[Rfam]
RNA sequence: UGCGAUGAGUCGAGAGGUCAGGGAACCGACCCUUAUUUGGUUCCCCCGUGCGAACGGAAAUGAUUCUCGAGUGGGGCACGUAACCUACCGGAUUGUAGGGUGCCUGGUCCAGCUGGUAGUGGACGACCG
Numbered sequence: 001u002g003c004g005a006u007g008a009g010u011c012g013a014g015a016g017g018u019c020a021g022g023g024a025a026c027c028g029a030c031c032c033u034u035a036u037u038u039g040g041u042u043c044c045c046c047c048g049u050g051c052g053a054a055c056g057g058a059a060a061u062g063a064u065u066c067u068c069g070a071g072u073g074g075g076g077c078a079c080g081u082a083a084c085c086u087a088c089c090g091g092a093u094u095g096u097a098g099g100g101u102g103c104c105u106g107g108u109c110c111a112g113c114u115g116g117u118a119g120u121g122g123a124c125g126a127c128c129g
Base pairs, nucleotide, nucleotide: 017064018063019062020061021045022044023043024042025041026040027039028038029037046057047056048055049054075104076103077102078101079100084099085098086097087096088095114129115128116127117126

Shown here is a 129-nucleotide sequence from Limosilactobacillus fermentum, a member of the family "Enterococcus sRNA 68 (Lacto-3 RNA)". The organism belongs to Limosilactobacillus, within Bacteria. It scores 76 bits against the family's covariance model. The literature on the family includes a 2015 paper in RNA by Innocenti et al., "Whole-genome mapping of 5' RNA ends in bacteria by tagged sequencing: a comprehensive view in Enterococcus faecalis".